[Rfam]
RNA sequence: GGACAUCGCUCCUAGGGUUCCGGUCGCCAUCCGGUGGUGCCCCCACCAGGGCGGCGAUGACUGGUCCGAGAGGGGCGACCCGGGAGCACCGCUGCCGGGUCACGGAGGGAUAAAAGCCCGGGAGAC
Numbered sequence: 001g002g003a004c005a006u007c008g009c010u011c012c013u014a015g016g017g018u019u020c021c022g023g024u025c026g027c028c029a030u031c032c033g034g035u036g037g038u039g040c041c042c043c044c045a046c047c048a049g050g051g052c053g054g055c056g057a058u059g060a061c062u063g064g065u066c067c068g069a070g071a072g073g074g075g076c077g078a079c080c081c082g083g084g085a086g087c088a089c090c091g092c093u094g095c096c097g098g099g100u101c102a103c104g105g106a107g108g109g110a111u112a113a114a115a116g117c118c119c120g121g122g123a124g125a126c
Stems, first nucleotide, its partner, number of pairs: 007077006015067002020064002022061001023058006079099005085093001101121001103124001107119003
RNA: Guanidine-I riboswitch aptamer